[Rfam]
RNA sequence: UAUUAUAGCCAUCAGAACAAUAACCUACUAACUUGGUCAGGAUAGAGAUAUAGCAGCCAUAUGAAGAAGUGUUGUGUCUGGCGGUCUUUUUUAAUCA
Numbered sequence: 001u002a003u004u005a006u007a008g009c010c011a012u013c014a015g016a017a018c019a020a021u022a023a024c025c026u027a028c029u030a031a032c033u034u035g036g037u038c039a040g041g042a043u044a045g046a047g048a049u050a051u052a053g054c055a056g057c058c059a060u061a062u063g064a065a066g067a068a069g070u071g072u073u074g075u076g077u078c079u080g081g082c083g084g085u086c087u088u089u090u091u092u093a094a095u096c097a
Stems, first nucleotide, its partner, number of pairs: 004093002007090002009084002012081003017075006025066002028063001034059004042051003
The family of this 97-nucleotide RNA from Mycoplasmopsis canis is "Bacterial small signal recognition particle RNA". The family is grouped with related families in Rfam's "SRP clan". Rfam's curators write: The signal recognition particle (SRP) is a universally conserved ribonucleoprotein involved in the co-translational targeting of proteins to membranes. The match comes from Rfam's covariance-model search (41 bits). It is annotated as a non-coding RNA gene.